The record is a 94-nucleotide RNA sequence from Mangrovibacter sp. MFB070, which matches "Salmonella enterica Typhi npcRNA 44" in Rfam.
The base pairs follow the family's consensus structure, which was predicted with CMfinder.
RNA sequence: CUUUAAAAAUCCGGAACAAGCUGAAAAUUGAAACACUGAACAACGCAAGUUGUUCGUGAGUCUCUCAAAACUUAUAACACGAAGACAUCUUCGG
Numbered sequence: 001c002u003u004u005a006a007a008a009a010u011c012c013g014g015a016a017c018a019a020g021c022u023g024a025a026a027a028u029u030g031a032a033a034c035a036c037u038g039a040a041c042a043a044c045g046c047a048a049g050u051u052g053u054u055c056g057u058g059a060g061u062c063u064c065u066c067a068a069a070a071c072u073u074a075u076a077a078c079a080c081g082a083a084g085a086c087a088u089c090u091u092c093g094g
Base pairs, nucleotide, nucleotide: 020075024073025072028069029068034058035057036056038055039054040053041052042051043050044049080093081092082091084089
Dot-bracket structure: ...................(...((..((....(((.(((((((....)))))))))).........))..)).)....(((.(....).))).

Description: The literature on the family includes a 2010 paper in Nucleic Acids Res by Chinni et al., "Experimental identification and characterization of 97 novel npcRNA candidates in Salmonella enterica serovar Typhi". The family has 34 seed sequences and 474 matches in Rfam 15.1.